[Rfam]
The family of this 105-nucleotide RNA sequence from Prunus yedoensis is "MIR6274 microRNA precursor family". Pairs were carried over by alignment from the consensus structure, which was predicted with RNAalifold. The organism belongs to Prunus yedoensis, within Eukaryota.
RNA sequence: GGAUAACACUGUUUUGCUAUUCCCAGCCAAUAAUACAAUGACACGUGAAAAAAUGAUAUCACGUGUCAUUGUGUUCUUGGUCGGGAAUAACAAAAAGUGUUAUCC
Numbered sequence: 001g002g003a004u005a006a007c008a009c010u011g012u013u014u015u016g017c018u019a020u021u022c023c024c025a026g027c028c029a030a031u032a033a034u035a036c037a038a039u040g041a042c043a044c045g046u047g048a049a050a051a052a053a054u055g056a057u058a059u060c061a062c063g064u065g066u067c068a069u070u071g072u073g074u075u076c077u078u079g080g081u082c083g084g085g086a087a088u089a090a091c092a093a094a095a096a097g098u099g100u101u102a103u104c105c
Stems, first nucleotide, its partner, number of pairs: 002104004012095005018089003022085003026081005032075017050057001
Dot-bracket structure: .((((......(((((.(((.(((.(((((.(((((((((((((((((.(......).))))))))))))))))).))))).))).))).))))).....)))).